RNA: Selenocysteine transfer RNA
RNA sequence: GGGGGUAGAUAGGUGCUGGUGUGCCUACUGGUCUUCAAAACCAUGUUGUCGGGCUAGUAACCCGACGGGUGGGUUCGAUUCCCACAUACUCCC
Numbered sequence: 001g002g003g004g005g006u007a008g009a010u011a012g013g014u015g016c017u018g019g020u021g022u023g024c025c026u027a028c029u030g031g032u033c034u035u036c037a038a039a040a041c042c043a044u045g046u047u048g049u050c051g052g053g054c055u056a057g058u059a060a061c062c063c064g065a066c067g068g069g070u071g072g073g074u075u076c077g078a079u080u081c082c083c084a085c086a087u088a089c090u091c092c093c
Base pairs, nucleotide, nucleotide: 001093002092003091004090005089006088007087008085011026012025013024014023015022016021027046028045029043030042031041032040048066049065050064051063052062070084071083072082073081
Dot-bracket structure: ((((((((..((((((....))))))((((((.......)))).)).(((((.........)))))...((((.......))))).)))))))